Shown here is a 100-nucleotide RNA from Virgibacillus salinus, a member of the family "Purine riboswitch aptamer". Taxonomically the source falls in Virgibacillus (Bacteria, Bacillota, Bacilli, Caryophanales). Pairs were carried over by alignment from the consensus structure, which is taken from published work.

[Rfam]
RNA sequence: CAACAAAUAAAUACGGUUCCUCAUAUAUUUUUGAGAAUAUGGCUCAAAAGUUUCUACCAAGCACCAUAAAUGCUGGACUAUGAGGGAGGAUGAAUCGUUG
Numbered sequence: 001c002a003a004c005a006a007a008u009a010a011a012u013a014c015g016g017u018u019c020c021u022c023a024u025a026u027a028u029u030u031u032u033g034a035g036a037a038u039a040u041g042g043c044u045c046a047a048a049a050g051u052u053u054c055u056a057c058c059a060a061g062c063a064c065c066a067u068a069a070a071u072g073c074u075g076g077a078c079u080a081u082g083a084g085g086g087a088g089g090a091u092g093a094a095u096c097g098u099u100g
Stems, first nucleotide, its partner, number of pairs: 018086008029049007058076001060074004